[Rfam]
RNA: sucC RNA
RNA sequence: GUCACAGGUGGUGCGGCCCUGGUCAUCAGUGCAGCACCGAACGCGCAGUACCUAACGAAGACGGUAAAAAG
Numbered sequence: 001g002u003c004a005c006a007g008g009u010g011g012u013g014c015g016g017c018c019c020u021g022g023u024c025a026u027c028a029g030u031g032c033a034g035c036a037c038c039g040a041a042c043g044c045g046c047a048g049u050a051c052c053u054a055a056c057g058a059a060g061a062c063g064g065u066a067a068a069a070a071g
Stems, first nucleotide, its partner, number of pairs: 009039006016032002019029002